[Rfam]
The family of this 53-nucleotide RNA from Haloarcula amylolytica is "leuA-Halobacteria RNA". The family's consensus secondary structure is taken from published work. It is one of the family's seed sequences.
RNA sequence: CCCGACGGAGGAUAGAGGAAGUCGCCGCGAGGCGGCUGGCCGCGAAAUUCGUG
Numbered sequence: 001c002c003c004g005a006c007g008g009a010g011g012a013u014a015g016a017g018g019a020a021g022u023c024g025c026c027g028c029g030a031g032g033c034g035g036c037u038g039g040c041c042g043c044g045a046a047a048u049u050c051g052u053g
Base pairs, nucleotide, nucleotide: 020037021036022035023034024033025032026031